[Rfam]
The family of this 68-nucleotide RNA sequence is "tRNA". Transfer RNA (tRNA) molecules are approximately 80 nucleotides in length. The family's consensus secondary structure is taken from published work. Rfam's curators put it in the seed alignment. The family's RNA type in Rfam is transfer RNA.
RNA sequence: GCUUACGUAGCUUAAGUAAAGCACAGCACUGAAGAUGCUGAGAUGAGCCCUAGAAAGCUCCGAAAGCA
Numbered sequence: 001g002c003u004u005a006c007g008u009a010g011c012u013u014a015a016g017u018a019a020a021g022c023a024c025a026g027c028a029c030u031g032a033a034g035a036u037g038c039u040g041a042g043a044u045g046a047g048c049c050c051u052a053g054a055a056a057g058c059u060c061c062g063a064a065a066g067c068a
Stems, first nucleotide, its partner, number of pairs: 001067004006062002010022004024040005045060004